[Rfam]
RNA sequence: ACAGCGUACUUACCUACUAUAUAGUAGCUGAAAUACACGCAUCUCACCUACUAUAUAGGAGGUAAGUACACAGUUU
Numbered sequence: 001a002c003a004g005c006g007u008a009c010u011u012a013c014c015u016a017c018u019a020u021a022u023a024g025u026a027g028c029u030g031a032a033a034u035a036c037a038c039g040c041a042u043c044u045c046a047c048c049u050a051c052u053a054u055a056u057a058g059g060a061g062g063u064a065a066g067u068a069c070a071c072a073g074u075u076u
Base pairs, nucleotide, nucleotide: 001074002073004071006069007068008067009066010065011064012063013062014061015060017058018057019056020055021054022053023052024051025050026049027048029046030045031044033042034041
Annotation:
This 76-nucleotide RNA from Ameiurus melas belongs to the Rfam family "mir-7563 microRNA precursor family". Taxonomically the source falls in Ameiurus (Eukaryota, Deuterostomia, Teleostei, Ostariophysi). The match comes from Rfam's covariance-model search (83 bits). Gene Ontology terms of the family: RISC complex and miRNA-mediated post-transcriptional gene silencing.